[Rfam]
RNA: Small nucleolar RNA SNORD10
RNA sequence: GGUUUAUGAUGAAAGCAUGCGUGUCAUAUGACUCCCAGGAGAAGCUGCGUCCGGCCUGCGCAGGCUGCGUCUUGCCGCCCGUGUCAGUAUGGUGCAGUGCAUUCUGGGAAGUGAUCGUGACUAAAAUCUGAAACC
Number, nucleotide and partner (000 for none) at each position: 001g135002g134003u133004u132005u000006a000007u000008g000009a000010u000011g000012a000013a000014a000015g000016c000017a000018u000019g000020c000021g000022u000023g000024u000025c000026a000027u000028a000029u000030g000031a000032c000033u000034c000035c000036c000037a000038g000039g000040a000041g000042a000043a000044g098045c097046u096047g095048c094049g093050u092051c091052c000053g000054g000055c000056c000057u000058g000059c000060g000061c000062a000063g000064g000065c000066u000067g000068c000069g000070u000071c000072u000073u000074g000075c000076c000077g000078c000079c000080c000081g000082u000083g000084u000085c000086a000087g000088u000089a000090u000091g051092g050093u049094g048095c047096a046097g045098u044099g000100c000101a000102u000103u000104c000105u000106g000107g000108g000109a000110a000111g000112u000113g000114a000115u000116c000117g000118u000119g000120a000121c000122u000123a000124a000125a000126a000127u000128c000129u000130g000131a000132a004133a003134c002135c001